[Rfam]
RNA: mir-172 microRNA precursor family
RNA sequence: GUGUUUGCAGAUGCGGCAUUAUCAAGAUUCACAAACUUAGUACAGGGUUUCAUUGGAGAGCCAAAGGGUGUGGUUUAGUGGUACCCCUCCACAAAAUCACCUCCUUUUACUUCAAAGUUUUCCUUUCAAAUAUGGGAAUCUUGAUGAUGCUGCAUCAGCAAACAU
Numbered sequence: 001g002u003g004u005u006u007g008c009a010g011a012u013g014c015g016g017c018a019u020u021a022u023c024a025a026g027a028u029u030c031a032c033a034a035a036c037u038u039a040g041u042a043c044a045g046g047g048u049u050u051c052a053u054u055g056g057a058g059a060g061c062c063a064a065a066g067g068g069u070g071u072g073g074u075u076u077a078g079u080g081g082u083a084c085c086c087c088u089c090c091a092c093a094a095a096a097u098c099a100c101c102u103c104c105u106u107u108u109a110c111u112u113c114a115a116a117g118u119u120u121u122c123c124u125u126u127c128a129a130a131u132a133u134g135g136g137a138a139u140c141u142u143g144a145u146g147a148u149g150c151u152g153c154a155u156c157a158g159c160a161a162a163c164a165u
Stems, first nucleotide, its partner, number of pairs: 010156021032134002